This 131-nucleotide RNA from Octodon degus belongs to the Rfam family "Small nucleolar RNA SNORA38". The family's RNA type in Rfam is H/ACA-box small nucleolar RNA. It scores 141 bits against the family's covariance model. Rfam's curators write: ACA38 is a member of the H/ACA class of snoRNA that guide the sites of modification of uridines to pseudouridines. Gene Ontology terms of the family: Cajal body, RNA processing and nucleolus. The source organism's lineage runs through Eukaryota, Euteleostomi, Dipnotetrapodomorpha, Mammalia and Octodon.
RNA sequence: CCCUCCUACAAAGGCGUGUCUUUUGCUCCCUGUCUUUGGACACGUAAGAAUUGGAGGCAAAGUAAAGAGGACUUGGAGGGAUCUAGAGCUGGCUUGCUCCCCGCAGGCUCAAGAUCAACUGUCCCACAUAA
Numbered sequence: 001c002c003c004u005c006c007u008a009c010a011a012a013g014g015c016g017u018g019u020c021u022u023u024u025g026c027u028c029c030c031u032g033u034c035u036u037u038g039g040a041c042a043c044g045u046a047a048g049a050a051u052u053g054g055a056g057g058c059a060a061a062g063u064a065a066a067g068a069g070g071a072c073u074u075g076g077a078g079g080g081a082u083c084u085a086g087a088g089c090u091g092g093c094u095u096g097c098u099c100c101c102c103g104c105a106g107g108c109u110c111a112a113g114a115u116c117a118a119c120u121g122u123c124c125c126a127c128a129u130a131a
Stems, first nucleotide, its partner, number of pairs: 002057005015044007025029001069124003073121001091109007